[Rfam]
RNA sequence: GCCUUUCCUGCUUCAACAGUGUUUGGACAGAACCGC
Numbered sequence: 001g002c003c004u005u006u007c008c009u010g011c012u013u014c015a016a017c018a019g020u021g022u023u024u025g026g027a028c029a030g031a032a033c034c035g036c
Base pairs, nucleotide, nucleotide: 001036002035005032006031007030010028012027013026014025015024016023017021
Dot-bracket structure: ((..(((..(.((((((...).)))))).)))..))
The family of this 36-nucleotide sequence from Chelonoidis abingdonii is "Iron response element I". Lineage of the source: Eukaryota > Gnathostomata > Teleostomi > Sarcopterygii > Chelonoidis nigra species complex. The family has 62 seed sequences and 6,829 matches in Rfam 15.1. By type it is a cis-regulatory element. Pairs were carried over by alignment from the consensus structure, which is taken from published work. The match comes from Rfam's covariance-model search (35 bits).